[Rfam]
RNA sequence: GAGCCAGCUCAGCCCAGCGGUUCCAUCGACCAAAGCAAUUGCUUAGAUCCCCUAAUCGCUUCCAGCGGUUUGAGACCCGCAGACACUGCCUGGCUUUUAA
Numbered sequence: 001g002a003g004c005c006a007g008c009u010c011a012g013c014c015c016a017g018c019g020g021u022u023c024c025a026u027c028g029a030c031c032a033a034a035g036c037a038a039u040u041g042c043u044u045a046g047a048u049c050c051c052c053u054a055a056u057c058g059c060u061u062c063c064a065g066c067g068g069u070u071u072g073a074g075a076c077c078c079g080c081a082g083a084c085a086c087u088g089c090c091u092g093g094c095u096u097u098u099a100a
Base pairs, nucleotide, nucleotide: 002095003094004093005092006091007090012084014082017080018079019078020077026073027072028071029070
RNA: Vault RNA
Organism: Podarcis lilfordi